The record is a 95-nucleotide sequence from Prunus armeniaca, which matches "MIR535 microRNA precursor family" in Rfam.
The organism belongs to Prunus, within Eukaryota.
Rfam links the family to the GO terms miRNA-mediated post-transcriptional gene silencing and RISC complex.
A reference for the family is Zeng et al. (2010), "Conservation and divergence of microRNAs and their functions in Euphorbiaceous plants", Nucleic Acids Res.
The family has 20 seed sequences and 544 matches in Rfam 15.1.

RNA sequence: UAGACUGUAUGACAACAAGAGAGAGCACGCCCGUAAACAUCCAUGGCCCUUUCAUGGGUGCCGACAAGCGUGCUCUCUCUCGUUGUCAAACAACG
Numbered sequence: 001u002a003g004a005c006u007g008u009a010u011g012a013c014a015a016c017a018a019g020a021g022a023g024a025g026c027a028c029g030c031c032c033g034u035a036a037a038c039a040u041c042c043a044u045g046g047c048c049c050u051u052u053c054a055u056g057g058g059u060g061c062c063g064a065c066a067a068g069c070g071u072g073c074u075c076u077c078u079c080u081c082g083u084u085g086u087c088a089a090a091c092a093a094c095g
Stems, first nucleotide, its partner, number of pairs: 010088005016082001020078002023075001025073006033065002